Rfam assigns this 118-nucleotide RNA from Gordonia rhizosphera to the family "Actinobacteria sRNA Ms_IGR-7".
It is annotated as a small RNA.
The literature on the family includes a 2013 paper in RNA by Li et al., "Identification of small RNAs in Mycobacterium smegmatis using heterologous Hfq".
NCBI's taxonomy places the organism under Bacteria, Bacillati, Actinomycetota, Gordonia, Gordonia rhizosphera.
The base pairs follow the family's consensus structure.
It scores 87 bits against the family's covariance model.
[Rfam]
RNA sequence: CGGAAGUGCCCUUCUGUGGCUGUGUGAUUAAUGCGUGAAGAACAUCAAUCAUCCCAGCUCAGAGGGCACUUUCUCCGUCACGACACCCGAAAUCAGCGAAUCGGGUCGGUGGAUUCAG
Numbered sequence: 001c002g003g004a005a006g007u008g009c010c011c012u013u014c015u016g017u018g019g020c021u022g023u024g025u026g027a028u029u030a031a032u033g034c035g036u037g038a039a040g041a042a043c044a045u046c047a048a049u050c051a052u053c054c055c056a057g058c059u060c061a062g063a064g065g066g067c068a069c070u071u072u073c074u075c076c077g078u079c080a081c082g083a084c085a086c087c088c089g090a091a092a093u094c095a096g097c098g099a100a101u102c103g104g105g106u107c108g109g110u111g112g113a114u115u116c117a118g
Base pairs, nucleotide, nucleotide: 002073003072004071005070006069007068008067009066010065011064012063013062015061016060020057021056022055024053025051026050027049028048032044033043098116099115100114101113102112104110